[Rfam]
RNA sequence: CUCUGUCUCAGCAAAUGAUUCAGGGCAAAGGAG
Dot-bracket structure: (((((..(((.....)))..)))))........
Annotation
L31-Firmicutes ribosomal protein leader: a 33-nucleotide RNA from Secundilactobacillus malefermentans. Pairs were carried over by alignment from the consensus structure, which is taken from published work. Its Rfam clan is "Ribosomal Protein L31 Leader clan". The organism belongs to Secundilactobacillus malefermentans, within Bacteria.